[Rfam]
RNA sequence: UUGCCGCGUCCACUCCUCCGACCGGCUCUCUCUGAUGCACUUCCUGUAACAGGGCGUGCAUCAGAGAGAGCCGGUCGGAGGAGUGGACGCGGCAAAGG
Numbered sequence: 001u002u003g004c005c006g007c008g009u010c011c012a013c014u015c016c017u018c019c020g021a022c023c024g025g026c027u028c029u030c031u032c033u034g035a036u037g038c039a040c041u042u043c044c045u046g047u048a049a050c051a052g053g054g055c056g057u058g059c060a061u062c063a064g065a066g067a068g069a070g071c072c073g074g075u076c077g078g079a080g081g082a083g084u085g086g087a088c089g090c091g092g093c094a095a096a097g098g
Base pairs, nucleotide, nucleotide: 001095002094003093004092005091006090007089009087010086012084013083014082015081016080017079018078019077020076021075022074023073024072025071026070027069028068029067030066031065032064033063034062035061036060037059038058039057040056
mraW RNA: a 98-nucleotide sequence from Microcaecilia unicolor.
Rfam 15.1 lists 851 matches to the family in 821 species.
It is annotated as a cis-regulatory element.